[Rfam]
RNA sequence: UUCACGUCUGAGUUGGACAGGGGAUCUUGACAGUUUCACGUGAUAUGCUGCCAGAUCUAUCUUUCCAGCUCACACGUGGA
Numbered sequence: 001u002u003c004a005c006g007u008c009u010g011a012g013u014u015g016g017a018c019a020g021g022g023g024a025u026c027u028u029g030a031c032a033g034u035u036u037c038a039c040g041u042g043a044u045a046u047g048c049u050g051c052c053a054g055a056u057c058u059a060u061c062u063u064u065c066c067a068g069c070u071c072a073c074a075c076g077u078g079g080a
Base pairs, nucleotide, nucleotide: 001080002079003078004077005076006075007074009072010071011070012069013068014067015066016065017064019062020061021060022058023057024056025055026054027053029051031050032049033048034047
A member of the RNA family "mir-750 microRNA precursor family" from Danaus chrysippus, 80 nucleotides long. The base pairs follow the family's consensus structure, which was predicted with RNAalifold. The source organism's lineage runs through Eukaryota, Endopterygota, Amphiesmenoptera, Heteroneura and Anosia.